RNA sequence: CGAACGAAAAGCUCGUGUUAAGGGAAAACAUACGGACAGUAGGGUUCUCCUUACCGUCAAUUUAUCAAUACCCUUGGGAAGGUCUGAGAAAAACCAUAAAAGUCUCUCGCUGGGACCCUCAUGAAAGUGAGGACGAAUAACCAGAAACUAUACCCUCCUAGUUGGCGUAUGAAGUCUUCGGACUGAUUGAUCUAACUAUGGAGUGUUGGAACACGGUUCGUUGGUGGAAGCUCUAUGCAGUGCAAUACACGAGGCAUCACAUUGUGUUAUAACUCAAUUCAGACUACUCUUUCGUUCG
Numbered sequence: 001c002g003a004a005c006g007a008a009a010a011g012c013u014c015g016u017g018u019u020a021a022g023g024g025a026a027a028a029c030a031u032a033c034g035g036a037c038a039g040u041a042g043g044g045u046u047c048u049c050c051u052u053a054c055c056g057u058c059a060a061u062u063u064a065u066c067a068a069u070a071c072c073c074u075u076g077g078g079a080a081g082g083u084c085u086g087a088g089a090a091a092a093a094c095c096a097u098a099a100a101a102g103u104c105u106c107u108c109g110c111u112g113g114g115a116c117c118c119u120c121a122u123g124a125a126a127g128u129g130a131g132g133a134c135g136a137a138u139a140a141c142c143a144g145a146a147a148c149u150a151u152a153c154c155c156u157c158c159u160a161g162u163u164g165g166c167g168u169a170u171g172a173a174g175u176c177u178u179c180g181g182a183c184u185g186a187u188u189g190a191u192c193u194a195a196c197u198a199u200g201g202a203g204u205g206u207u208g209g210a211a212c213a214c215g216g217u218u219c220g221u222u223g224g225u226g227g228a229a230g231c232u233c234u235a236u237g238c239a240g241u242g243c244a245a246u247a248c249a250c251g252a253g254g255c256a257u258c259a260c261a262u263u264g265u266g267u268u269a270u271a272a273c274u275c276a277a278u279u280c281a282g283a284c285u286a287c288u289c290u291u292u293c294g295u296u297c298g
Stems, first nucleotide, its partner, number of pairs: 001298004007292003012253007020075005035058003039054005084282005092225001094224002102116005117132006133221006151205003254270001256268001258266003
RNA: Nuclear RNase P
Organism: Diversispora eburnea